[Rfam]
RNA sequence: GUUCGUGCUGAAGGCCUGUUUCCUAGGCUACAGACGAAGGACUAGUUCCUCACUUUGCGCCUAGGGGAAAGUCCCCGGACCUCGAGGCAGAGAGUGCAGCGUGCGCGGGCACGUAGACCUUCCUUGCUUACACUGUUAAGUCCGCCAAGAAGCGAUCCCGCCCAGGGCGGGGGAGACGAGCGGCGUGGCGCAGGGGCGUCCUCCGUCAAGUGUUCUAGUUACGCAGGCAGUGCGCUUUCACGCGCACUAACCACACGGGGCUCAUUCUCAGCGCGGC
Numbered sequence: 001g002u003u004c005g006u007g008c009u010g011a012a013g014g015c016c017u018g019u020u021u022c023c024u025a026g027g028c029u030a031c032a033g034a035c036g037a038a039g040g041a042c043u044a045g046u047u048c049c050u051c052a053c054u055u056u057g058c059g060c061c062u063a064g065g066g067g068a069a070a071g072u073c074c075c076c077g078g079a080c081c082u083c084g085a086g087g088c089a090g091a092g093a094g095u096g097c098a099g100c101g102u103g104c105g106c107g108g109g110c111a112c113g114u115a116g117a118c119c120u121u122c123c124u125u126g127c128u129u130a131c132a133c134u135g136u137u138a139a140g141u142c143c144g145c146c147a148a149g150a151a152g153c154g155a156u157c158c159c160g161c162c163c164a165g166g167g168c169g170g171g172g173g174a175g176a177c178g179a180g181c182g183g184c185g186u187g188g189c190g191c192a193g194g195g196g197c198g199u200c201c202u203c204c205g206u207c208a209a210g211u212g213u214u215c216u217a218g219u220u221a222c223g224c225a226g227g228c229a230g231u232g233c234g235c236u237u238u239c240a241c242g243c244g245c246a247c248u249a250a251c252c253a254c255a256c257g258g259g260g261c262u263c264a265u266u267c268u269c270a271g272c273g274c275g276g277c
Stems, first nucleotide, its partner, number of pairs: 003276009014228006022065007038050004070262002073260004086097001088096002099114006116200003122195006131187003142183004160168003230247006

Rfam assigns this 277-nucleotide RNA from Hipposideros armiger to the family "RNase MRP". By type it is a ribozyme.